[Rfam]
RNA sequence: AGCCUAAACCUCGCUUCUUGCGCGGCACGGCUCCAAAACUCAGGAAGAUACUGAACCCCGCGUUCAGCACUCUUCCUGAGUCAUAGCUCGAAAGGGCUAUGGGCCGCAAGGCC
Numbered sequence: 001a002g003c004c005u006a007a008a009c010c011u012c013g014c015u016u017c018u019u020g021c022g023c024g025g026c027a028c029g030g031c032u033c034c035a036a037a038a039c040u041c042a043g044g045a046a047g048a049u050a051c052u053g054a055a056c057c058c059c060g061c062g063u064u065c066a067g068c069a070c071u072c073u074u075c076c077u078g079a080g081u082c083a084u085a086g087c088u089c090g091a092a093a094g095g096g097c098u099a100u101g102g103g104c105c106g107c108a109a110g111g112c113c
Base pairs, nucleotide, nucleotide: 001032002031003030004029009025010024012022013021014020039080040079041078042077043076044075045074046073047072048071051067052066053065054064055063056062082101083100084099085098086097087096088095089094102113103112104111105110
RNA: LOOT RNA